[Rfam]
RNA sequence: UCGUAACUUGUGUGGCUUCGAAUGUACCUAGUUGAGGAAAAAACUGUUAGAUUUUGUUUCCUCUGGUAUUCGAGCCAAUAAGUUCGG
Dot-bracket structure: .((.(((((((.(((((.(((..(((((.((..((.((((...((...)).)))).))..))..)))))))))))))))))))))).
RNA: mir-314 microRNA precursor family
Organism: Scaptodrosophila lebanonensis